[Rfam]
RNA sequence: GGUCAUGAGCGCCAGCAUUGAGCCCCGGCUUGCUGGCCGGCAACCCUCGUUCCGCGGUGGGGUGCCCCGGGUGAGGACCUGGCCUCCGGCAACCGCCGGUCGGCAAGCGCGGCAC
Numbered sequence: 001g002g003u004c005a006u007g008a009g010c011g012c013c014a015g016c017a018u019u020g021a022g023c024c025c026c027g028g029c030u031u032g033c034u035g036g037c038c039g040g041c042a043a044c045c046c047u048c049g050u051u052c053c054g055c056g057g058u059g060g061g062g063u064g065c066c067c068c069g070g071g072u073g074a075g076g077a078c079c080u081g082g083c084c085u086c087c088g089g090c091a092a093c094c095g096c097c098g099g100u101c102g103g104c105a106a107g108c109g110c111g112g113c114a115c
Base pairs, nucleotide, nucleotide: 001079002078003077004076009038011037012036013035014034015033016032021030022029039066040065041064044062045061046060048057082104083103084102086099087098088097089096090095
Dot-bracket structure: ((((....(.((((((....((......)).)))))))(((..(((.(........)..))).))).........))))..(((.(((((....)))))..)))...........
Description: A member of the RNA family "SAM (S-adenosyl methionine) riboswitch aptamer" from Arthrobacter sp. FB24, 115 nucleotides long. Gene Ontology terms of the family: regulation of gene expression and S-adenosylmethionine metabolic process. It scores 104 bits against the family's covariance model. Pairs were carried over by alignment from the consensus structure, which is taken from published work. About the family: SAM-IV is a mRNA element that regulates gene expression via direct sensing of S-adenosylmethionine (SAM or AdoMet). SAM-IV riboswitches share conserved nucleotide positions with the previously described SAM-I riboswitches sequence analysis and molecular recognition experiments suggest that SAM-I and SAM-IV riboswitches share similar ligand binding sites, but have different scaffolds.